[Rfam]
RNA: permuted transfer-messenger RNA
RNA sequence: AGUGAUAAACAUUAAACUGACUAAAUUUAGCGGACUCGGGGGCGGAGCCCGACAUCUCCACCAAUGGGGAUGAAUUAGGAUCGACGUAGGUUGAAAGGUUUGAUUUUUACUCGGUGUUGUUUGCCGUAAUAGAACUAAAAAGAUAAAUGCAAAUAAUAACGCAUUUGCACCUGCAAAUGGUAAUAGCUUACAAGCUGUUGCUGUAGGUGCAUAA
Numbered sequence: 001a002g003u004g005a006u007a008a009a010c011a012u013u014a015a016a017c018u019g020a021c022u023a024a025a026u027u028u029a030g031c032g033g034a035c036u037c038g039g040g041g042g043c044g045g046a047g048c049c050c051g052a053c054a055u056c057u058c059c060a061c062c063a064a065u066g067g068g069g070a071u072g073a074a075u076u077a078g079g080a081u082c083g084a085c086g087u088a089g090g091u092u093g094a095a096a097g098g099u100u101u102g103a104u105u106u107u108u109a110c111u112c113g114g115u116g117u118u119g120u121u122u123g124c125c126g127u128a129a130u131a132g133a134a135c136u137a138a139a140a141a142g143a144u145a146a147a148u149g150c151a152a153a154u155a156a157u158a159a160c161g162c163a164u165u166u167g168c169a170c171c172u173g174c175a176a177a178u179g180g181u182a183a184u185a186g187c188u189u190a191c192a193a194g195c196u197g198u199u200g201c202u203g204u205a206g207g208u209g210c211a212u213a214a
Stems, first nucleotide, its partner, number of pairs: 001111005014101004026090003030087003036052005053072007112126004